[Rfam]
RNA sequence: CCGCGCCCGCCACCUGAGAGCCAAGGUUUUCUGGUCUGUGCGAAUUGAAUCUGGUCGUGCCGCUGGCCCCUGGGCCACCGCCAUGCGCAUCAGAGAUACCGACGGUCUAAAGCGUCCGUGCAGGUCUCGCGCAGUUUCCGAGCUGAGCAAUCGGUCCGGCGACGUAGAUAGCACGAUAGGUCG
Numbered sequence: 001c002c003g004c005g006c007c008c009g010c011c012a013c014c015u016g017a018g019a020g021c022c023a024a025g026g027u028u029u030u031c032u033g034g035u036c037u038g039u040g041c042g043a044a045u046u047g048a049a050u051c052u053g054g055u056c057g058u059g060c061c062g063c064u065g066g067c068c069c070c071u072g073g074g075c076c077a078c079c080g081c082c083a084u085g086c087g088c089a090u091c092a093g094a095g096a097u098a099c100c101g102a103c104g105g106u107c108u109a110a111a112g113c114g115u116c117c118g119u120g121c122a123g124g125u126c127u128c129g130c131g132c133a134g135u136u137u138c139c140g141a142g143c144u145g146a147g148c149a150a151u152c153g154g155u156c157c158g159g160c161g162a163c164g165u166a167g168a169u170a171g172c173a174c175g176a177u178a179g180g181u182c183g
Stems, first nucleotide, its partner, number of pairs: 004042003012035003016031006055176006061080002064077005084133005093128004099124002102119004135162002138159003142155005
Annotation: Shown here is a 183-nucleotide RNA from Pseudomonas sp. CF161, a member of the family "RT-15 RNA". By type it is a small RNA. Pairs were carried over by alignment from the consensus structure, which is taken from published work.